Shown here is an 80-nucleotide sequence from Heterocephalus glaber, a member of the family "Small nucleolar RNA U2-19". Pairs were carried over by alignment from the consensus structure, which is taken from published work. For this family Rfam cites "Guide RNAs with 5' Caps and Novel Box C/D snoRNA-like Domains for Modification of snRNAs in Metazoa" (Tycowski et al., Curr Biol, 2004).

[Rfam]
RNA sequence: GAUCAAGGAUGAAAAUAGCCAAAUGUGAGCAUCAGAAGACCUCCCAGUCUCCCUGAUGCAUGGUCUCUAUAGUUCUGGGA
Numbered sequence: 001g002a003u004c005a006a007g008g009a010u011g012a013a014a015a016u017a018g019c020c021a022a023a024u025g026u027g028a029g030c031a032u033c034a035g036a037a038g039a040c041c042u043c044c045c046a047g048u049c050u051c052c053c054u055g056a057u058g059c060a061u062g063g064u065c066u067c068u069a070u071a072g073u074u075c076u077g078g079g080a
Base pairs, nucleotide, nucleotide: 029059030058031057032056033055037050038049039048040047
Its family is annotated with RNA processing and nucleolus in the Gene Ontology.